MIR319 microRNA precursor family: a 95-nucleotide sequence from Cannabis sativa.
Rfam links the family to the GO terms miRNA-mediated post-transcriptional gene silencing and RISC complex.
The match comes from Rfam's covariance-model search (81 bits).
NCBI's taxonomy places the organism under Eukaryota, Viridiplantae, Gunneridae, fabids, Cannabis.
RNA sequence: UAGAAAUGGGUGUUCCCUGCAGCCCAAAACAUUGUCUUGAUGUUUAAACAACACUUGAGCCAUUUGUUUUGGACUGAAGGGAGCUCCUAAUUCUU
Numbered sequence: 001u002a003g004a005a006a007u008g009g010g011u012g013u014u015c016c017c018u019g020c021a022g023c024c025c026a027a028a029a030c031a032u033u034g035u036c037u038u039g040a041u042g043u044u045u046a047a048a049c050a051a052c053a054c055u056u057g058a059g060c061c062a063u064u065u066g067u068u069u070u071g072g073a074c075u076g077a078a079g080g081g082a083g084c085u086c087c088u089a090a091u092u093c094u095u
Base pairs, nucleotide, nucleotide: 007089008088009087010086012084013083014082015081016080017079018078021075022074024072025071026070027069028068029067030066